[Rfam]
RNA sequence: CAACGAAGCACGGGAGAGAUCGUCCAUCCGCGACGACGCCGACGGAGCAACCGCCCCGGAAACUCUCAGGCAAAAGGACCGUGCAGCGAGA
Number, nucleotide and partner (000 for none) at each position: 001c000002a000003a000004c000005g000006a000007a000008g084009c083010a082011c081012g080013g079014g000015a000016g000017a000018g000019a000020u036021c035022g034023u033024c000025c000026a000027u000028c000029c000030g000031c000032g000033a023034c022035g021036a020037c000038g071039c070040c069041g067042a066043c000044g000045g065046a064047g063048c000049a000050a000051c059052c058053g000054c000055c000056c000057c000058g052059g051060a000061a000062a000063c047064u046065c045066u042067c041068a000069g040070g039071c038072a000073a000074a000075a000076g000077g000078a000079c013080c012081g011082u010083g009084c008085a000086g000087c000088g000089a000090g000091a000
RNA: Glycine riboswitch aptamer
Organism: Paraburkholderia saeva